[Rfam]
RNA sequence: UAAGUAAGACAGACAAUCGCGGAUGUAAGUGCCGAAAGGCAGCAGACGAGGAAAGUCCGGGCUUCAUAGGGCAGGAUGCCGGAUAACGUCCGGUGGAGGUGACUCCCAGGCCAGUGCAACAGAAAUAAACCGCGUCGGAUUCCAUAUCGGCGUAAGGGUGGAAAGGCAGUGUAAGAGACUACCGCCUCUGCGGUAACGGAGAGGGCACAUGUAAACCCCAUUCGAAGCAAGACCGGAUAGAAGCAAUGUGGCGGCCCGUCACGCUUCAGGUAGGUCGCUUGAGCACGGCGGCAACGUCGUGCCUAGAUAGAUGAUUGUCCACGACAUAACCCGGCUUAUCGUUUUGCUUAACAC
Numbered sequence: 001u002a003a004g005u006a007a008g009a010c011a012g013a014c015a016a017u018c019g020c021g022g023a024u025g026u027a028a029g030u031g032c033c034g035a036a037a038g039g040c041a042g043c044a045g046a047c048g049a050g051g052a053a054a055g056u057c058c059g060g061g062c063u064u065c066a067u068a069g070g071g072c073a074g075g076a077u078g079c080c081g082g083a084u085a086a087c088g089u090c091c092g093g094u095g096g097a098g099g100u101g102a103c104u105c106c107c108a109g110g111c112c113a114g115u116g117c118a119a120c121a122g123a124a125a126u127a128a129a130c131c132g133c134g135u136c137g138g139a140u141u142c143c144a145u146a147u148c149g150g151c152g153u154a155a156g157g158g159u160g161g162a163a164a165g166g167c168a169g170u171g172u173a174a175g176a177g178a179c180u181a182c183c184g185c186c187u188c189u190g191c192g193g194u195a196a197c198g199g200a201g202a203g204g205g206c207a208c209a210u211g212u213a214a215a216c217c218c219c220a221u222u223c224g225a226a227g228c229a230a231g232a233c234c235g236g237a238u239a240g241a242a243g244c245a246a247u248g249u250g251g252c253g254g255c256c257c258g259u260c261a262c263g264c265u266u267c268a269g270g271u272a273g274g275u276c277g278c279u280u281g282a283g284c285a286c287g288g289c290g291g292c293a294a295c296g297u298c299g300u301g302c303c304u305a306g307a308u309a310g311a312u313g314a315u316u317g318u319c320c321a322c323g324a325c326a327u328a329a330c331c332c333g334g335c336u337u338a339u340c341g342u343u344u345u346g347c348u349u350a351a352c353a354c
Stems, first nucleotide, its partner, number of pairs: 001350010011339001012319007020048002024044003053337003057334005062227004069257004074223005079093005094108001095106004109218002114216002116212003130157002132153007165183002168180003184206001185204005191198002231276004241266004248262005283302008
RNA: Bacterial RNase P class A